This 133-nucleotide RNA sequence from Pseudescherichia vulneris belongs to the Rfam family "RtT RNA". The source organism's lineage runs through Bacteria, Pseudomonadati, Enterobacteriaceae, Pseudescherichia and Pseudescherichia vulneris. A reference for the family is Bosl and Kersten (1991), "A novel RNA product of the tyrT operon of Escherichia coli", Nucleic Acids Res. Rfam links the family to the GO term cellular response to amino acid starvation. It is annotated as a cis-regulatory element.
[Rfam]
RNA sequence: UUCGUCCGAAUUUCACAGAGGAUGAGAACCUCCGGGGCAGGAGGUUCGACUUGAGCGGAGCGAAAGAACGUUGCUUCAGCAACGGCCCGCAGGGCGAGCUACGGAGUGGCGAGUCAUCCUCUCUCGCCGACCA
Numbered sequence: 001u002u003c004g005u006c007c008g009a010a011u012u013u014c015a016c017a018g019a020g021g022a023u024g025a026g027a028a029c030c031u032c033c034g035g036g037g038c039a040g041g042a043g044g045u046u047c048g049a050c051u052u053g054a055g056c057g058g059a060g061c062g063a064a065a066g067a068a069c070g071u072u073g074c075u076u077c078a079g080c081a082a083c084g085g086c087c088c089g090c091a092g093g094g095c096g097a098g099c100u101a102c103g104g105a106g107u108g109g110c111g112a113g114u115c116a117u118c119c120u121c122u123c124u125c126g127c128c129g130a131c132c133a
Stems, first nucleotide, its partner, number of pairs: 015124001017122005023116001033096002045091001047089002052062002069084006